[Rfam]
RNA sequence: GCACCUCAGUCUCUCCUGUUCCUUGCUGUGUGGUUCAGGUCUGGGGACAAGUUGGUGCUACAGCACAGCAGUGGAAAUCCAGAUGGGUUGUUUUUCCCUGGUUUGGAACUCAUCUCUACACCUCUGCAACACUG
Number, nucleotide and partner (000 for none) at each position: 001g058002c057003a056004c055005c054006u000007c000008a000009g000010u000011c000012u000013c000014u046015c045016c044017u043018g042019u000020u000021c039022c038023u000024u000025g000026c000027u000028g000029u000030g000031u000032g000033g000034u000035u000036c000037a000038g022039g021040u000041c000042u018043g017044g016045g015046g014047a000048c000049a000050a000051g000052u000053u000054g005055g004056u003057g002058c001059u000060a000061c000062a000063g000064c000065a000066c000067a000068g127069c126070a125071g124072u000073g122074g000075a000076a000077a000078u000079c000080c000081a115082g114083a113084u112085g111086g110087g109088u108089u000090g000091u000092u000093u000094u000095u107096c106097c105098c000099u000100g000101g000102u000103u000104u000105g097106g096107a095108a088109c087110u086111c085112a084113u083114c082115u081116c000117u000118a000119c000120a000121c000122c073123u000124c071125u070126g069127c068128a000129a000130c000131a000132c000133u000134g000
The family of this 134-nucleotide RNA sequence from Chloroceryle aenea is "Small nucleolar RNA SNORA55".
ACA55 is a member of the H/ACA class of snoRNA that guide the sites of modification of uridines to pseudouridines.
The base pairs follow the family's consensus structure, which was predicted with PFOLD.
Rfam classes the family as an H/ACA-box small nucleolar RNA.
Gene Ontology terms of the family: nucleolus and RNA processing.